This 78-nucleotide RNA from Monodelphis domestica belongs to the Rfam family "Small nucleolar RNA SNORD28". Rfam classes the family as a C/D-box small nucleolar RNA. Rfam's curators put it in the seed alignment. NCBI's taxonomy places the organism under Eukaryota, Chordata, Vertebrata, Euteleostomi, Monodelphis.
RNA sequence: GUCAGAUGAUUUGAAUCUUGGCUUACUGAUGCUCUAUGAGGGUCCACAUUCUUAUAGCAUGUUAGAGUUCUGAUGGCA
Numbered sequence: 001g002u003c004a005g006a007u008g009a010u011u012u013g014a015a016u017c018u019u020g021g022c023u024u025a026c027u028g029a030u031g032c033u034c035u036a037u038g039a040g041g042g043u044c045c046a047c048a049u050u051c052u053u054a055u056a057g058c059a060u061g062u063u064a065g066a067g068u069u070c071u072g073a074u075g076g077c078a
Stems, first nucleotide, its partner, number of pairs: 001077004